[Rfam]
A member of the RNA family "Small nucleolar RNA SNORA63" from Calypte anna, 127 nucleotides long. The organism belongs to Calypte, within Eukaryota. Rfam 15.1 lists 1,279 matches to the family in 601 species. By type it is an H/ACA-box small nucleolar RNA.

RNA sequence: AAGCAGGAAAGUUAUAAUGCAGCUGUGCAGUGCUGUAUUAUCGUUCCCCCUGCUUAAAGAAAAAUGUUUCCUCCUAUCCCUGACUGCUCUGUUACCACAGCAGAUAGGGACGCUAGGUUUCAUACAA
Dot-bracket structure: ..(((((......((((((((((........)))))))))).......))))).........................((((.((((............)))).))))...................
Rfam describes the family as follows. E3 belongs to the H/ACA class of snoRNAs and is involved in the processing of eukaryotic pre-rRNA and has regions of complementarity to 18S rRNA. E3 is encoded in introns in the gene for protein synthesis initiation factor 4AII.